[Rfam]
RNA: Lysine riboswitch aptamer
RNA sequence: AGUGAAGGUAGAGGUGCGAACUUCAAGAGUAAUAAUUCGGAGAAGAAUGAGCUUCAGGGAAGAAUUAUGAAAGGGAUAGAUCGCCGAAGUAAGGAAAGUUCUCAUGACUUUCUUUGCUGGUUUUGCAUUGAAUAAAUGUAAGACUGUCAAAACAAGGAACUGUUUUGGAGAGCUAUCUCACUG
Numbered sequence: 001a002g003u004g005a006a007g008g009u010a011g012a013g014g015u016g017c018g019a020a021c022u023u024c025a026a027g028a029g030u031a032a033u034a035a036u037u038c039g040g041a042g043a044a045g046a047a048u049g050a051g052c053u054u055c056a057g058g059g060a061a062g063a064a065u066u067a068u069g070a071a072a073g074g075g076a077u078a079g080a081u082c083g084c085c086g087a088a089g090u091a092a093g094g095a096a097a098g099u100u101c102u103c104a105u106g107a108c109u110u111u112c113u114u115u116g117c118u119g120g121u122u123u124u125g126c127a128u129u130g131a132a133u134a135a136a137u138g139u140a141a142g143a144c145u146g147u148c149a150a151a152a153c154a155a156g157g158a159a160c161u162g163u164u165u166u167g168g169a170g171a172g173c174u175a176u177c178u179c180a181c182u183g
Stems, first nucleotide, its partner, number of pairs: 006178006016084004021079001023076002032068007088118012119145011147168007